The family of this 102-nucleotide RNA from Clostridium sp. JN-9 is "Purine riboswitch aptamer". Its family is annotated with purine nucleobase biosynthetic process in the Gene Ontology. Lineage of the source: Bacteria > Bacillati > Bacillota > Clostridia > Clostridium.
Nucleotides: 102
Stems, first nucleotide, its partner, number of pairs: 018088001020086006029049006059077006
Number, partner (000 for none) and nucleotide at each position: 001000a002000u003000a004000a005000c006000a007000a008000u009000u010000g011000a012000a013000u014000a015000a016000a017000a018088g019000a020086u021085u022084c023083a024082u025081a026000u027000a028000a029049u030048c031047c032046u033045g034044a035000u036000a037000a038000u039000a040000u041000g042000g043000u044034u045033u046032g047031g048030g049029a050000g051000u052000c053000u054000c055000u056000a057000c058000a059077a060076g061075a062074a063073a064072a065000c066000c067000u068000u069000a070000a071000a072064u073063u074062u075061u076060c077059u078000g079000c080000c081025u082024a083023u084022g085021g086020a087000a088018u089000a090000a091000g092000a093000c094000u095000a096000u097000g098000c099000u100000u101000c102000a